[Rfam]
RNA: mir-153 microRNA precursor family
Organism: Nephila pilipes
RNA sequence: CUGUCUAUCGUUUUUGUGACUGUUGCAGUUAGGUAAUAAGAAAAUUGCAUAGUCACAAAAGUGAUGGAUAG
Numbered sequence: 001c002u003g004u005c006u007a008u009c010g011u012u013u014u015u016g017u018g019a020c021u022g023u024u025g026c027a028g029u030u031a032g033g034u035a036a037u038a039a040g041a042a043a044a045u046u047g048c049a050u051a052g053u054c055a056c057a058a059a060a061g062u063g064a065u066g067g068a069u070a071g
Stems, first nucleotide, its partner, number of pairs: 002070005008064013024049007